[Rfam]
RNA sequence: UUGCCUGGAAGAUAUGUUUGAUAUUCUUGGGUUGUGAUAAAUAUGUCAACCAGGUGUCAAACAUAUCAUGCCGGUUGA
Numbered sequence: 001u002u003g004c005c006u007g008g009a010a011g012a013u014a015u016g017u018u019u020g021a022u023a024u025u026c027u028u029g030g031g032u033u034g035u036g037a038u039a040a041a042u043a044u045g046u047c048a049a050c051c052a053g054g055u056g057u058c059a060a061a062c063a064u065a066u067c068a069u070g071c072c073g074g075u076u077g078a
Stems, first nucleotide, its partner, number of pairs: 005074004011067015030051005
RNA: mir-190 microRNA precursor family
Organism: Soboliphyme baturini